The record is a 65-nucleotide RNA sequence from Pyrobaculum aerophilum, which matches "Pyrobaculum sRNA 207" in Rfam. Rfam classes the family as an H/ACA-box small nucleolar RNA. Gene Ontology term of the family: RNA processing. Non canonical pseudouridylation guide sRNA features. Predicted to target 23S U2597 in Pyrobaculum. A reference for the family is Bernick et al. (2012), "Discovery of Pyrobaculum small RNA families with atypical pseudouridine guide RNA features", RNA. Rfam's curators put it in the seed alignment. The base pairs follow the family's consensus structure.
RNA sequence: GGGUGGGGGACUUAGAGCGGCCCGUAGGGCCCCCGUGAAGAAGUCCCCUGCCGCGGGGUUGCACA
Numbered sequence: 001g002g003g004u005g006g007g008g009g010a011c012u013u014a015g016a017g018c019g020g021c022c023c024g025u026a027g028g029g030c031c032c033c034c035g036u037g038a039a040g041a042a043g044u045c046c047c048c049u050g051c052c053g054c055g056g057g058g059u060u061g062c063a064c065a
Stems, first nucleotide, its partner, number of pairs: 005049009019031005